[Rfam]
RNA sequence: GGCAGAGGGAGCCCGACCCCCGUGCCCCCGACCGACAGCGACGGGGCAUGAGGAAAGUCCCCCCACCGAACCGGACGGGCGACCGGACGCAAGUCCGGGGUCGGAGACGGCCGGCUCUGGAACAGAAACGAGACCGCCCGGCGCGACCGAUGAGGCGUGCGAACCGACCCGCGAGGGGAGGGAGCUAACCCGCCGAGGGUCGACCGCCGGGGACGGGUGGAACGGCGAAUCCUCGCCGGUGCAAGUCCGCGCCAGGGGGCGGCGCACGCCCCCGAAGGUAGUCCGGGGACGGCGCGGACGCUCAGCCGAAUGUCGGGCCGAACCGAAGGGGGCUUACUCCCCUCAGCC
Numbered sequence: 001g002g003c004a005g006a007g008g009g010a011g012c013c014c015g016a017c018c019c020c021c022g023u024g025c026c027c028c029c030g031a032c033c034g035a036c037a038g039c040g041a042c043g044g045g046g047c048a049u050g051a052g053g054a055a056a057g058u059c060c061c062c063c064c065a066c067c068g069a070a071c072c073g074g075a076c077g078g079g080c081g082a083c084c085g086g087a088c089g090c091a092a093g094u095c096c097g098g099g100g101u102c103g104g105a106g107a108c109g110g111c112c113g114g115c116u117c118u119g120g121a122a123c124a125g126a127a128a129c130g131a132g133a134c135c136g137c138c139c140g141g142c143g144c145g146a147c148c149g150a151u152g153a154g155g156c157g158u159g160c161g162a163a164c165c166g167a168c169c170c171g172c173g174a175g176g177g178g179a180g181g182g183a184g185c186u187a188a189c190c191c192g193c194c195g196a197g198g199g200u201c202g203a204c205c206g207c208c209g210g211g212g213a214c215g216g217g218u219g220g221a222a223c224g225g226c227g228a229a230u231c232c233u234c235g236c237c238g239g240u241g242c243a244a245g246u247c248c249g250c251g252c253c254a255g256g257g258g259g260c261g262g263c264g265c266a267c268g269c270c271c272c273c274g275a276a277g278g279u280a281g282u283c284c285g286g287g288g289a290c291g292g293c294g295c296g297g298a299c300g301c302u303c304a305g306c307c308g309a310a311u312g313u314c315g316g317g318c319c320g321a322a323c324c325g326a327a328g329g330g331g332g333c334u335u336a337c338u339c340c341c342c343u344c345a346g347c348c
Stems, first nucleotide, its partner, number of pairs: 001348003005344005010338002012317006021050008055335003059332005064241004078237005083098005099112005113232002118228001120226001134216003137211007155193002245299009
The family of this 348-nucleotide RNA from Candidatus Halobonum tyrrellensis is "Archaeal RNase P". The match comes from Rfam's covariance-model search (140 bits). Taxonomically the source falls in Candidatus Halobonum tyrrellensis (Archaea, Methanobacteriati, Methanobacteriota, Haloferacaceae). Rfam classes the family as a ribozyme. Ribonuclease P (RNase P) is a ubiquitous endoribonuclease, found in archaea, bacteria and eukarya as well as chloroplasts and mitochondria. The literature on the family includes a 1998 paper in Annu Rev Biochem by Frank and Pace, "Ribonuclease P: unity and diversity in a tRNA processing ribozyme".